[Rfam]
RNA sequence: GGCACCGUAGUUCAACGGAUAGAAUAGGCGUUUCCUAAACGCUAGAUGCGGGUUCGAUUCCCGCCGGAGCCA
Numbered sequence: 001g002g003c004a005c006c007g008u009a010g011u012u013c014a015a016c017g018g019a020u021a022g023a024a025u026a027g028g029c030g031u032u033u034c035c036u037a038a039a040c041g042c043u044a045g046a047u048g049c050g051g052g053u054u055c056g057a058u059u060c061c062c063g064c065c066g067g068a069g070c071c072a
Stems, first nucleotide, its partner, number of pairs: 001071003005067003010025004027043005048064005
Dot-bracket structure: (((.(((..((((........)))).(((((.......)))))....(((((.......)))))))).))).